[Rfam]
RNA sequence: CUGUGAGAGGAAUGAUGUACUAUUAUGAAGCUCUCAAGAUGCUGACCUUUUUGGAUUCUGCCUCUGAACAUGAUUUAAAG
Numbered sequence: 001c002u003g004u005g006a007g008a009g010g011a012a013u014g015a016u017g018u019a020c021u022a023u024u025a026u027g028a029a030g031c032u033c034u035c036a037a038g039a040u041g042c043u044g045a046c047c048u049u050u051u052u053g054g055a056u057u058c059u060g061c062c063u064c065u066g067a068a069c070a071u072g073a074u075u076u077a078a079a080g
Stems, first nucleotide, its partner, number of pairs: 001080002004077003
This 80-nucleotide RNA from Zea mays belongs to the Rfam family "Small nucleolar RNA J33". It scores 86 bits against the family's covariance model.